[Rfam]
mir-290 microRNA precursor family: a 66-nucleotide RNA sequence from Trichechus manatus. Its family is annotated with RISC complex and miRNA-mediated post-transcriptional gene silencing in the Gene Ontology. Its Rfam clan is "mir-290 clan". For this family Rfam cites "Embryonic stem cell-specific MicroRNAs" (Houbaviy et al., Dev Cell, 2003). The family's consensus secondary structure was predicted with RNAalifold.

RNA sequence: GUGGCACUCAAACUGUGGGGGCACUUUCUCUCAUGUACGAAAGUGCUGCUACUUUUUGAGUGUUAC
Dot-bracket structure: ...(((((((((..((((.(((((((((..........))))))))).))))..)))))))))...